[Rfam]
RNA sequence: CCGCGUCGCGCGGGAGAGACCGGGCAACCGUCGAGGUUGGCCCGGCGCCGAAGGAGCAACCGCCCCGGAAACUCUCAGGCGAAAGGACUGCGCGACGCCU
Numbered sequence: 001c002c003g004c005g006u007c008g009c010g011c012g013g014g015a016g017a018g019a020c021c022g023g024g025c026a027a028c029c030g031u032c033g034a035g036g037u038u039g040g041c042c043c044g045g046c047g048c049c050g051a052a053g054g055a056g057c058a059a060c061c062g063c064c065c066c067g068g069a070a071a072c073u074c075u076c077a078g079g080c081g082a083a084a085g086g087a088c089u090g091c092g093c094g095a096c097g098c099c100u
Base pairs, nucleotide, nucleotide: 006095007094008093009092010091011090012089013088020045021044022043023042024041025040047080048079049078050076051075054074055073056072060068061067